This 84-nucleotide RNA sequence from Caenorhabditis remanei belongs to the Rfam family "SmY spliceosomal RNA".

[Rfam]
Nucleotides: 084
Base pairs, nucleotide, nucleotide: 022039023038024037026035027034028033059083060082061081062080063079064078065077066076067075
Number, partner (000 for none) and nucleotide at each position: 001000c002000a003000u004000c005000g006000a007000a008000c009000u010000a011000c012000a013000a014000u015000a016000c017000c018000u019000u020000u021000a022039a023038g024037g025000c026035c027034u028033u029000u030000c031000c032000u033028a034027a035026g036000a037024c038023c039022u040000c041000g042000a043000c044000u045000a046000g047000a048000a049000u050000u051000u052000u053000u054000g055000g056000a057000a058000a059083a060082c061081c062080c063079u064078g065077u066076c067075u068000a069000u070000u071000c072000u073000u074000u075067a076066g077065g078064c079063a080062g081061g082060g083059u084000g
By type it is a spliceosomal small nuclear RNA.
On this family, see Deng et al., Genome Res 2006: "Organization of the Caenorhabditis elegans small non-coding transcriptome: genomic features, biogenesis, and expression".
Lineage of the source: Eukaryota > Metazoa > Ecdysozoa > Chromadorea > Caenorhabditis.
The sequence is in the family's curated seed alignment.
Pairs were carried over by alignment from the consensus structure, which is taken from published work.